[Rfam]
RNA sequence: CCAAAGGCUCUUUUAAGAGCCACCUAUUCAUUCACGUAGGAGAGCU
Numbered sequence: 001c002c003a004a005a006g007g008c009u010c011u012u013u014u015a016a017g018a019g020c021c022a023c024c025u026a027u028u029c030a031u032u033c034a035c036g037u038a039g040g041a042g043a044g045c046u
Base pairs, nucleotide, nucleotide: 006021007020008019009018010017011016
This 46-nucleotide sequence from Ibidorhyncha struthersii belongs to the Rfam family "Histone 3' UTR stem-loop". The family's consensus secondary structure is taken from published work. From the family's description: The mRNAs of metazoan histone genes lack a poly-A tail. 3' end processing occurs at a site between a highly conserved stem-loop (modelled by this family) and a purine rich region around 20 nts downstream (the histone downstream element, or HDE). It scores 36 bits against the family's covariance model. Lineage of the source: Eukaryota > Metazoa > Aves > Charadriiformes > Ibidorhyncha.